[Rfam]
RNA sequence: ACGGUCUGGGGAAAGGCUCCUGUGUGGCUGGACCCGCCCGCGGUGGGUGCAGCCCUGUACCAGACAGCCCGACCUUGACCUACAGUAAUGCCCAGGGGAACGCGUUCCCCGGGACUGGAACUUGCAGUAACAGGUGUGGACACCCUAGCAGCAGUUUGGUGAUCAUGUAUGAUACUGCAAACAGGA
Numbered sequence: 001a002c003g004g005u006c007u008g009g010g011g012a013a014a015g016g017c018u019c020c021u022g023u024g025u026g027g028c029u030g031g032a033c034c035c036g037c038c039c040g041c042g043g044u045g046g047g048u049g050c051a052g053c054c055c056u057g058u059a060c061c062a063g064a065c066a067g068c069c070c071g072a073c074c075u076u077g078a079c080c081u082a083c084a085g086u087a088a089u090g091c092c093c094a095g096g097g098g099a100a101c102g103c104g105u106u107c108c109c110c111g112g113g114a115c116u117g118g119a120a121c122u123u124g125c126a127g128u129a130a131c132a133g134g135u136g137u138g139g140a141c142a143c144c145c146u147a148g149c150a151g152c153a154g155u156u157u158g159g160u161g162a163u164c165a166u167g168u169a170u171g172a173u174a175c176u177g178c179a180a181a182c183a184g185g186a
Base pairs, nucleotide, nucleotide: 003080004079005078006077008075009074010073015069016068017067018066020063021062022061024060025059026054027053028052029051030050032048033047034046092113093112095109096108097107098106099105122180123179124178125177126176127175128174129173131171132170137165138164139163141161142160143159144158147156148155149154

Shown here is a 186-nucleotide RNA from Mesocricetus auratus, a member of the family "Small Cajal body specific RNA 16". The organism belongs to Mesocricetus, within Eukaryota. Rfam's curators write: scaRNAs are a specific class of small nuclear RNAs which localise to the Cajal bodies and guide the modification of RNA polymerase II transcribed spliceosomal RNAs U1, U2, U4, U5 and U12. ACA47 belongs to the H/ACA box class of guide RNAs as it has the predicted hairpin-hinge-hairpin-tail structure, the conserved H/ACA-box motifs and is found associated with GAR1. Pairs were carried over by alignment from the consensus structure, which was predicted with RNAfold. Rfam classes the family as a small Cajal body RNA. A reference for the family is Darzacq et al. (2002), "Cajal body-specific small nuclear RNAs: a novel class of 2'-O-methylation and pseudouridylation guide RNAs", EMBO J.